Na+ riboswitch aptamer (DUF1646): a 50-nucleotide RNA from Melissococcus plutonius. The family's consensus secondary structure is taken from published work. Rfam links the family to the GO terms regulation of gene expression and sodium ion binding.
RNA sequence: GGUUGGAGCUUUUGCUUUCAAGGAUUUGACUUUUCAAGGGGUGAGAAAAG
Numbered sequence: 001g002g003u004u005g006g007a008g009c010u011u012u013u014g015c016u017u018u019c020a021a022g023g024a025u026u027u028g029a030c031u032u033u034u035c036a037a038g039g040g041g042u043g044a045g046a047a048a049a050g
Base pairs, nucleotide, nucleotide: 003021004020005019006017007016008015009014030050031049032048033047034046035045